Source information: mir-124 microRNA precursor family: a 71-nucleotide sequence from Oncorhynchus kisutch. NCBI's taxonomy places the organism under Eukaryota, Craniata, Euteleostomi, Salmoniformes, Oncorhynchus. Rfam links the family to the GO terms RISC complex and miRNA-mediated post-transcriptional gene silencing. The literature on the family includes a 2003 paper in Genome Biol by Lai et al., "Computational identification of Drosophila microRNA genes".
RNA sequence: GGCUCCUCGUGUUCACGGCGGACCUUGAUUUAAAGUCAUUCAAUUAAGGCACGCGGUGAAUGCCAAGAGCC
Numbered sequence: 001g002g003c004u005c006c007u008c009g010u011g012u013u014c015a016c017g018g019c020g021g022a023c024c025u026u027g028a029u030u031u032a033a034a035g036u037c038a039u040u041c042a043a044u045u046a047a048g049g050c051a052c053g054c055g056g057u058g059a060a061u062g063c064c065a066a067g068a069g070c071c
Stems, first nucleotide, its partner, number of pairs: 003069003009063008018054003023049008